This 88-nucleotide RNA from Prochlorococcus marinus belongs to the Rfam family "Cyanobacterial functional RNA 20".
RNA sequence: AAGCAUUUAGGAAGUGCUUGCCUGGUUAAAUCACAAAUCUGAAUUUAACUAGUUCGUCAUGAGCUUGCCUGUGGGAUACCUGCAAGCU
Numbered sequence: 001a002a003g004c005a006u007u008u009a010g011g012a013a014g015u016g017c018u019u020g021c022c023u024g025g026u027u028a029a030a031u032c033a034c035a036a037a038u039c040u041g042a043a044u045u046u047a048a049c050u051a052g053u054u055c056g057u058c059a060u061g062a063g064c065u066u067g068c069c070u071g072u073g074g075g076a077u078a079c080c081u082g083c084a085a086g087c088u
Stems, first nucleotide, its partner, number of pairs: 001019008024050007031042003063087006
The base pairs follow the family's consensus structure, which was predicted with mfold. Lineage of the source: Bacteria > Bacillati > Cyanobacteriota > Cyanophyceae > Prochlorococcus marinus. For this family Rfam cites "The challenge of regulation in a minimal photoautotroph: non-coding RNAs in Prochlorococcus" (Steglich et al., PLoS Genet, 2008).